[Rfam]
RNA sequence: GUCAACCACCUUCCUACUCGGAUCGUCCGGCACGUUCCUGCCGGUAGAAGGGGCUACUC
Numbered sequence: 001g002u003c004a005a006c007c008a009c010c011u012u013c014c015u016a017c018u019c020g021g022a023u024c025g026u027c028c029g030g031c032a033c034g035u036u037c038c039u040g041c042c043g044g045u046a047g048a049a050g051g052g053g054c055u056a057c058u059c
Stems, first nucleotide, its partner, number of pairs: 010051003014047003027044006
Rfam assigns this 59-nucleotide sequence from Streptomyces shenzhenensis to the family "msiK RNA". It is annotated as a cis-regulatory element.